[Rfam]
Rfam assigns this 84-nucleotide sequence from Rhinopithecus roxellana to the family "mir-548 microRNA precursor family". The literature on the family includes a 2010 paper in BMC Biol by Witten et al., "Ultra-high throughput sequencing-based small RNA discovery and discrete statistical biomarker analysis in a collection of cervical tumours and matched controls". A search with the family's covariance model found it, with a score of 90 bits. Taxonomically the source falls in Rhinopithecus (Eukaryota, Bilateria, Sarcopterygii, Boreoeutheria).
RNA sequence: UCUUAGGUUGGUGCACAAGUAAUUGUGGGUUUUGCCAUUGCAAGUAAUGGCAAAAACCACAAUUACUUGUGCACCAAUCUAGAA
Number, nucleotide and partner (000 for none) at each position: 001u084002c000003u082004u081005a080006g079007g078008u077009u076010g075011g074012u073013g072014c071015a070016c069017a068018a067019g066020u065021a064022a063023u062024u061025g060026u059027g058028g057029g000030u055031u054032u053033u052034g051035c050036c049037a048038u047039u046040g045041c000042a000043a000044g000045u040046a039047a038048u037049g036050g035051c034052a033053a032054a031055a030056a000057c028058c027059a026060c025061a024062a023063u022064u021065a020066c019067u018068u017069g016070u015071g014072c013073a012074c011075c010076a009077a008078u007079c006080u005081a004082g003083a000084a001